A member of the RNA family "UnaL2 LINE 3' element" from Hucho hucho, 54 nucleotides long. Rfam's curators write: The eel long interspersed element (LINE) UnaL2 and its partner short interspersed element (SINE) share a conserved 3' tail containing a stem-loop that is critical for their retrotransposition. Presumably, the first step of retrotransposition is the recognition of their 3' tails by UnaL2-encoded reverse transcriptase. The solution structure of a 17-nucleotide RNA derived from the 3' tail of UnaL2 was determined by NMR. The family's RNA type in Rfam is cis-regulatory element.

RNA sequence: UGCACACACUACAGUAAGUCGCUCUGGAUAAGAGUGUCUGCUUAAUGACUCAAA
Dot-bracket structure: ............((((...((((((.....))))))..))).)...........
Numbered sequence: 001u002g003c004a005c006a007c008a009c010u011a012c013a014g015u016a017a018g019u020c021g022c023u024c025u026g027g028a029u030a031a032g033a034g035u036g037u038c039u040g041c042u043u044a045a046u047g048a049c050u051c052a053a054a
Stems, first nucleotide, its partner, number of pairs: 013043001014041003020036006